This 133-nucleotide RNA from Lupinus angustifolius belongs to the Rfam family "Small nucleolar RNA snoR74".
It scores 60 bits against the family's covariance model.
Rfam 15.1 lists 1,404 matches to the family in 223 species.
[Rfam]
RNA sequence: UAAAAAGCAGUGGUUUGUUGCCUAUCUUAACUGGUCUAACCUGUUGUAAACUUCACGAACAAAUCACCAUUGCUUUUGGGUGAACCUCUAUUAUUUAAUUGUGACUCAAGGUUCAGUUAAUGAUAGAAAAAAA
Dot-bracket structure: ....(((....(.((.(..................).)).).........))).............(.((((.(......(((((((.....................)))))))...).)))).).......